[Rfam]
RNA sequence: GGCGCGUCGCCCCCCUCAGUCUACCAGAGCCCGGAUACCUCAGAAAUUCGGCUCUGGGUCUGUGGGGAGCGAAAUGCAAC
Numbered sequence: 001g002g003c004g005c006g007u008c009g010c011c012c013c014c015c016u017c018a019g020u021c022u023a024c025c026a027g028a029g030c031c032c033g034g035a036u037a038c039c040u041c042a043g044a045a046a047u048u049c050g051g052c053u054c055u056g057g058g059u060c061u062g063u064g065g066g067g068a069g070c071g072a073a074a075u076g077c078a079a080c
Base pairs, nucleotide, nucleotide: 002077003076004075007072008071009070010069012067013066014065015064017062018061019060024057025056026055027054028053029052030051031050033049034048035047036046
This 80-nucleotide sequence from Pongo pygmaeus belongs to the Rfam family "mir-760 microRNA precursor family".
Rfam 15.1 lists 96 matches to the family in 96 species.
The base pairs follow the family's consensus structure, which was predicted with RNAalifold.
NCBI's taxonomy places the organism under Eukaryota, Opisthokonta, Euteleostomi, Mammalia, Pongo.
A reference for the family is Berezikov et al. (2006), "Many novel mammalian microRNA candidates identified by extensive cloning and RAKE analysis", Genome Res.